[Rfam]
RNA sequence: GAAUUUUUGAUUAGCGCCUGCUUAAGACGCGGGCCUUUAUGGAAG
Number, nucleotide and partner (000 for none) at each position: 001g000002a000003a000004u000005u000006u000007u000008u000009g000010a000011u000012u000013a000014g000015c000016g034017c033018c032019u031020g030021c029022u000023u000024a000025a000026g000027a000028c000029g021030c020031g019032g018033g017034c016035c000036u000037u000038u000039a000040u000041g000042g000043a000044a000045g000
Shown here is a 45-nucleotide RNA sequence from Lonsdalea quercina, a member of the family "nuoG RNA".